[Rfam]
RNA sequence: GGAGCAGUGGUCGAGUGGUCUAAGGCAGCGGUCUUGAAAACCGCCGGGCCAGGAAUGGUCCCGUGGGUUCGAAUCCCACCUGCUCCG
Numbered sequence: 001g002g003a004g005c006a007g008u009g010g011u012c013g014a015g016u017g018g019u020c021u022a023a024g025g026c027a028g029c030g031g032u033c034u035u036g037a038a039a040a041c042c043g044c045c046g047g048g049c050c051a052g053g054a055a056u057g058g059u060c061c062c063g064u065g066g067g068u069u070c071g072a073a074u075c076c077c078a079c080c081u082g083c084u085c086c087g
Stems, first nucleotide, its partner, number of pairs: 001086007010026003028044005063079005
This 87-nucleotide RNA from Ketogulonicigenium robustum belongs to the Rfam family "tRNA".
Taxonomically the source falls in Ketogulonicigenium (Bacteria, Pseudomonadati, Pseudomonadota, Rhodobacterales).
The match comes from Rfam's covariance-model search (56 bits).
The family's consensus secondary structure is taken from published work.
About the family: Transfer RNA (tRNA) molecules are approximately 80 nucleotides in length.
It is annotated as a transfer RNA.